[Rfam]
RNA sequence: ACCUGGGGUAGAGGCGCCGUAAUAAAGAGUAAGUAUAAGGAGUUUGCAGACUGUGAUUUAUACUGAAAGGUAUUAUGGCCGAAGAAAUAAAUUAUUGCAGAGAUUUAUUUCUGGGUGCUCAUAAAAUAUGUGAGUAACUGUCACGAAAAGUGUUGAGCUACAAGGUGC
Numbered sequence: 001a002c003c004u005g006g007g008g009u010a011g012a013g014g015c016g017c018c019g020u021a022a023u024a025a026a027g028a029g030u031a032a033g034u035a036u037a038a039g040g041a042g043u044u045u046g047c048a049g050a051c052u053g054u055g056a057u058u059u060a061u062a063c064u065g066a067a068a069g070g071u072a073u074u075a076u077g078g079c080c081g082a083a084g085a086a087a088u089a090a091a092u093u094a095u096u097g098c099a100g101a102g103a104u105u106u107a108u109u110u111c112u113g114g115g116u117g118c119u120c121a122u123a124a125a126a127u128a129u130g131u132g133a134g135u136a137a138c139u140g141u142c143a144c145g146a147a148a149a150g151u152g153u154u155g156a157g158c159u160a161c162a163a164g165g166u167g168c
Stems, first nucleotide, its partner, number of pairs: 008161004016079009032064008083112011113139002116136008142152003